[Rfam]
RNA sequence: UUAGUUUUAAUCAAUGUGAGUCUACACUUUAGAAAUGAAACCUACAUAAAGUGGUAGGACAUGCACUGAUUUCAUUCAG
Numbered sequence: 001u002u003a004g005u006u007u008u009a010a011u012c013a014a015u016g017u018g019a020g021u022c023u024a025c026a027c028u029u030u031a032g033a034a035a036u037g038a039a040a041c042c043u044a045c046a047u048a049a050a051g052u053g054g055u056a057g058g059a060c061a062u063g064c065a066c067u068g069a070u071u072u073c074a075u076u077c078a079g
Stems, first nucleotide, its partner, number of pairs: 001079002004076001006074001009071005015065004022057003025053007
The family of this 79-nucleotide RNA sequence from Medicago truncatula is "MIR5269 microRNA precursor family". The base pairs follow the family's consensus structure, which was predicted with RNAalifold. Gene Ontology terms of the family: miRNA-mediated post-transcriptional gene silencing and RISC complex. The match comes from Rfam's covariance-model search (62 bits).